About this RNA: Shown here is a 530-nucleotide part of an RNA from Plasmodiophora brassicae, a member of the family "Eukaryotic large subunit ribosomal RNA". The base pairs follow the family's consensus structure, which is taken from published work.
[Rfam]
RNA sequence: CUUUAGUUUGCUUCAAUGUGGAAAUUUCACACUAGAGGUGUCAGAAAAGUUACCACAGGGGUGGCGGUGGUGGUAUAUCCCCGCCCGCCCCUGUGAAAUCUCAGUGGUAGCUUUUAAGAGCAGGCUCAAAGUGUCCUGCUAGUCGGCCAUGGUCCGCCUGCUGUCCACCAAUGGACCAUGGGCACCGGCGACAUUGUCAAAUUGCGGGGACAUCCUAAAGCCGACUCCACCAAGUCGUCGUGGAAACACGGACGAUGGCCGAGCUAAUCGCCCUGGGUAUGGUAAAAGCGAGUCCGGAUACUGAAUGGGUAAUCCGCAGCCAAGUCCUACGGUCGGGUCGCCCACGCCCGAUACGGAUGCAGUCCAACGACUAGAUGGCAAUGGGUCGGGCAUCAUACUAUACGUUGCCCGGCUUAAGAUAUAGUCUGGCCCACGGGAAAGCCGUGCCCAUCGGAUGAGGAGCCCGAGUGGAGGCUCCGGAGCCAUGGGAGGUCGUACCAUCCAAUAUAUGGGUGUGUGCGACUGGGAGC
Number, nucleotide and partner (000 for none) at each position: 001c529002u528003u527004u525005a524006g523007u000008u522009u521010g520011c519012u000013u000014c000015a000016a000017u000018g000019u000020g000021g000022a000023a000024a000025u000026u000027u000028c000029a000030c000031a000032c000033u000034a000035g000036a000037g000038g000039u000040g000041u000042c000043a000044g000045a000046a000047a000048a000049g000050u000051u000052a000053c000054c000055a000056c000057a000058g000059g000060g000061g000062u000063g000064g000065c000066g000067g000068u000069g000070g000071u000072g000073g000074u000075a000076u000077a000078u000079c000080c000081c000082c000083g000084c000085c000086c000087g000088c000089c000090c000091c000092u000093g000094u000095g000096a000097a000098a000099u000100c000101u000102c000103a000104g000105u000106g000107g000108u000109a000110g000111c000112u000113u000114u000115u000116a000117a000118g000119a000120g000121c000122a000123g000124g000125c000126u000127c000128a000129a000130a000131g000132u000133g000134u000135c000136c000137u000138g000139c000140u000141a000142g000143u000144c000145g000146g000147c000148c000149a000150u000151g000152g000153u000154c000155c000156g000157c000158c000159u000160g000161c000162u000163g000164u000165c000166c000167a000168c000169c000170a000171a000172u000173g000174g000175a000176c000177c000178a000179u000180g000181g000182g000183c000184a000185c000186c000187g000188g000189c000190g000191a000192c000193a000194u000195u000196g000197u000198c000199a000200a000201a000202u000203u000204g000205c000206g000207g000208g000209g000210a000211c000212a000213u000214c000215c000216u000217a000218a000219a000220g000221c000222c000223g000224a000225c000226u000227c000228c000229a000230c000231c000232a000233a000234g000235u000236c000237g000238u000239c000240g000241u000242g000243g000244a000245a000246a000247c000248a000249c000250g000251g000252a000253c000254g000255a000256u000257g000258g000259c000260c000261g000262a000263g000264c000265u000266a000267a000268u000269c000270g000271c000272c000273c000274u000275g000276g000277g000278u000279a000280u000281g000282g000283u000284a000285a000286a000287a000288g000289c000290g000291a000292g000293u000294c000295c000296g000297g000298a000299u000300a000301c000302u000303g000304a000305a000306u000307g000308g000309g000310u000311a000312a000313u000314c000315c000316g000317c000318a000319g000320c000321c000322a000323a000324g000325u000326c000327c000328u000329a000330c000331g000332g000333u000334c000335g000336g000337g000338u000339c000340g000341c000342c000343c000344a000345c000346g000347c000348c000349c000350g000351a000352u000353a000354c000355g000356g000357a000358u000359g000360c000361a000362g000363u000364c000365c000366a000367a000368c000369g000370a000371c000372u000373a000374g000375a000376u000377g000378g000379c000380a000381a000382u000383g000384g000385g000386u000387c000388g000389g000390g000391c000392a000393u000394c000395a000396u000397a000398c000399u000400a000401u000402a000403c000404g000405u000406u000407g000408c000409c000410c000411g000412g000413c000414u000415u000416a000417a000418g000419a000420u000421a000422u000423a000424g000425u000426c000427u000428g000429g000430c000431c000432c000433a000434c000435g000436g000437g000438a000439a000440a000441g000442c000443c000444g000445u000446g000447c000448c000449c000450a000451u000452c000453g000454g000455a000456u000457g000458a000459g000460g000461a000462g000463c000464c000465c000466g000467a000468g000469u000470g000471g000472a000473g000474g000475c000476u000477c000478c000479g000480g000481a000482g000483c000484c000485a000486u000487g000488g000489g000490a000491g000492g000493u000494c000495g000496u000497a000498c000499c000500a000501u000502c000503c000504a000505a000506u000507a000508u000509a000510u000511g000512g000513g000514u000515g000516u000517g000518u000519g011520c010521g009522a008523c006524u005525g004526g000527g003528a002529g001530c000